The family of this 92-nucleotide sequence from Otolemur garnettii is "Y RNA". From the family's description: Y RNAs are components of the Ro ribonucleoprotein particle (Ro RNP), in association with Ro60 and La proteins.
RNA sequence: UGGUCCCAGUGCAGGGGUGUUUACAACUAAUUUAUUACAACCAGUUACAGAGUCCUUUGUUCCUUCUCCACUCCCACUGCUUCACUUGACUA
Numbered sequence: 001u002g003g004u005c006c007c008a009g010u011g012c013a014g015g016g017g018u019g020u021u022u023a024c025a026a027c028u029a030a031u032u033u034a035u036u037a038c039a040a041c042c043a044g045u046u047a048c049a050g051a052g053u054c055c056u057u058u059g060u061u062c063c064u065u066c067u068c069c070a071c072u073c074c075c076a077c078u079g080c081u082u083c084a085c086u087u088g089a090c091u092a
Stems, first nucleotide, its partner, number of pairs: 001092005008086001011083001013078002016075002019073001025061003029057002
The match comes from Rfam's covariance-model search (46 bits). The family's consensus secondary structure is taken from published work.